[Rfam]
RNA: ZMP/ZTP riboswitch aptamer (pfl RNA motif)
RNA sequence: AAGGAAUCGUAUAACCGGCGGCAGUGGAAUUAACCACAAGGAGUACGAUUUUUAAAAGCCGACCGCCUGGGCAAUCAAA
Numbered sequence: 001a002a003g004g005a006a007u008c009g010u011a012u013a014a015c016c017g018g019c020g021g022c023a024g025u026g027g028a029a030u031u032a033a034c035c036a037c038a039a040g041g042a043g044u045a046c047g048a049u050u051u052u053u054a055a056a057a058g059c060c061g062a063c064c065g066c067c068u069g070g071g072c073a074a075u076c077a078a079a
Stems, first nucleotide, its partner, number of pairs: 003052010015040001017067005024037004058072003